[Rfam]
RNA: COG3860 RNA
RNA sequence: CGGUCUGCAGCUCACCGAGGCGUCACCGUCCCAAUUGGGAUGCUAAACCUGCCA
Numbered sequence: 001c002g003g004u005c006u007g008c009a010g011c012u013c014a015c016c017g018a019g020g021c022g023u024c025a026c027c028g029u030c031c032c033a034a035u036u037g038g039g040a041u042g043c044u045a046a047a048c049c050u051g052c053c054a
Stems, first nucleotide, its partner, number of pairs: 001017004029040004